[Rfam]
RNA sequence: UAAUGCAUAACGUGGGGCCUGGAAACGAGGGACUCCGUGAGGAAGGGCGCCAAGGAUGGUCGACUGCUAAUGAAGACAAAAGGAGUCAAACUCUUCCGAUCACGGAACCUGCCGUCCAGAAUCGCGUAGUGACUGCCAGCGUCCGAAUGGGAAAGAAUUAAGCCAACAUCAAAUAUAUGUAGGACAAUUAAAAAGGAGCUUUAAAGAUAUGAGGAGUAAAGGUUAAAGGUAAUGAUUUGUUUAAAUUUUUGAUUUUGUAAAGACACUUGCCCCU
Numbered sequence: 001u002a003a004u005g006c007a008u009a010a011c012g013u014g015g016g017g018c019c020u021g022g023a024a025a026c027g028a029g030g031g032a033c034u035c036c037g038u039g040a041g042g043a044a045g046g047g048c049g050c051c052a053a054g055g056a057u058g059g060u061c062g063a064c065u066g067c068u069a070a071u072g073a074a075g076a077c078a079a080a081a082g083g084a085g086u087c088a089a090a091c092u093c094u095u096c097c098g099a100u101c102a103c104g105g106a107a108c109c110u111g112c113c114g115u116c117c118a119g120a121a122u123c124g125c126g127u128a129g130u131g132a133c134u135g136c137c138a139g140c141g142u143c144c145g146a147a148u149g150g151g152a153a154a155g156a157a158u159u160a161a162g163c164c165a166a167c168a169u170c171a172a173a174u175a176u177a178u179g180u181a182g183g184a185c186a187a188u189u190a191a192a193a194a195g196g197a198g199c200u201u202u203a204a205a206g207a208u209a210u211g212a213g214g215a216g217u218a219a220a221g222g223u224u225a226a227a228g229g230u231a232a233u234g235a236u237u238u239g240u241u242u243a244a245a246u247u248u249u250u251g252a253u254u255u256u257g258u259a260a261a262g263a264c265a266c267u268u269g270c271c272c273c274u
Stems, first nucleotide, its partner, number of pairs: 006031001008029001012026002035047002038044001085133003091129002096126001097124002102115004142151003159203003162199002210251003214248004220238006259274001262271001264269001
RNA: Mason-Pfizer monkey virus packaging signal